The family of this 179-nucleotide RNA sequence from Ruegeria sp. TM1040 is "Ruegeria cis52 sRNA". A reference for the family is Rivers et al. (2016), "Experimental Identification of Small Non-Coding RNAs in the Model Marine Bacterium Ruegeria pomeroyi DSS-3", Front Microbiol. Pairs were carried over by alignment from the consensus structure, which was predicted with RNAfold. A search with the family's covariance model found it, with a score of 135 bits. Rfam 15.1 lists 277 matches to the family in 275 species. Gene Ontology term of the family: regulation of gene expression.
RNA sequence: UGCGCAGCGCGUGGCGCAGAACGAUGUUUGGAAAACUCACCCCCUUAAGGCGUGCAGUCCGGAUGUAUUGGGCCGUCAUCACUUCGGUCAUGGAGGCGCGUGUCAUCCGGGCGAUAUAGCCCAUGCCAUAGAGCGCGAUGGUCAGUACCGGCAGGAAGAAAUUCUCAAACGUCGGGUUC
Numbered sequence: 001u002g003c004g005c006a007g008c009g010c011g012u013g014g015c016g017c018a019g020a021a022c023g024a025u026g027u028u029u030g031g032a033a034a035a036c037u038c039a040c041c042c043c044c045u046u047a048a049g050g051c052g053u054g055c056a057g058u059c060c061g062g063a064u065g066u067a068u069u070g071g072g073c074c075g076u077c078a079u080c081a082c083u084u085c086g087g088u089c090a091u092g093g094a095g096g097c098g099c100g101u102g103u104c105a106u107c108c109g110g111g112c113g114a115u116a117u118a119g120c121c122c123a124u125g126c127c128a129u130a131g132a133g134c135g136c137g138a139u140g141g142u143c144a145g146u147a148c149c150g151g152c153a154g155g156a157a158g159a160a161a162u163u164c165u166c167a168a169a170c171g172u173c174g175g176g177u178u179c
Base pairs, nucleotide, nucleotide: 005140006139008137009136010135011134012133019126021124028123030121031120038113040111041110042109046105048103050101051100052099053098054097055075057073058072059071060070061069062068082096083095084094085093145179147177148175149174150173151172152171154165155164156163157162